The family of this 73-nucleotide RNA sequence from Chanos chanos is "mir-456 microRNA precursor family". Pairs were carried over by alignment from the consensus structure, which was predicted with RNAalifold. Gene Ontology terms of the family: RISC complex and miRNA-mediated post-transcriptional gene silencing. NCBI's taxonomy places the organism under Eukaryota, Teleostomi, Teleostei, Chanidae, Chanos.

RNA sequence: GUGUAAGCAGGCAUCUUCCCAGUCUACAUGUAGAUUCAGGAAUCUGCAGGCUGGUUAGAUGGUUGUCAUGCGU
Numbered sequence: 001g002u003g004u005a006a007g008c009a010g011g012c013a014u015c016u017u018c019c020c021a022g023u024c025u026a027c028a029u030g031u032a033g034a035u036u037c038a039g040g041a042a043u044c045u046g047c048a049g050g051c052u053g054g055u056u057a058g059a060u061g062g063u064u065g066u067c068a069u070g071c072g073u
Stems, first nucleotide, its partner, number of pairs: 007066004012061005019054007030047006